[Rfam]
A member of the RNA family "Glycine riboswitch aptamer" from Alphaproteobacteria bacterium HT1-32, 89 nucleotides long. Pairs were carried over by alignment from the consensus structure. This family represents the bacterial glycine riboswitch. Glycine riboswitches usually consist of two metabolite-binding aptamers domains with similar structures in tandem. The aptamers cooperatively bind glycine to regulate the expression of downstream genes. In Bacillus subtilis, this riboswitch is found upstream of the gcvT operon which controls glycine degradation.
RNA sequence: AUGACCCUGGCGGGAGAGUCAGGUCCGCCUGCGCCGAAGGAGCAAAUCGCCCCCGCGAAACUCUCAGGCAAAAGGACCGUCAGGUGAUG
Numbered sequence: 001a002u003g004a005c006c007c008u009g010g011c012g013g014g015a016g017a018g019u020c021a022g023g024u025c026c027g028c029c030u031g032c033g034c035c036g037a038a039g040g041a042g043c044a045a046a047u048c049g050c051c052c053c054c055g056c057g058a059a060a061c062u063c064u065c066a067g068g069c070a071a072a073a074g075g076a077c078c079g080u081c082a083g084g085u086g087a088u089g
Stems, first nucleotide, its partner, number of pairs: 006084008020031004033069003036065002040063003047055001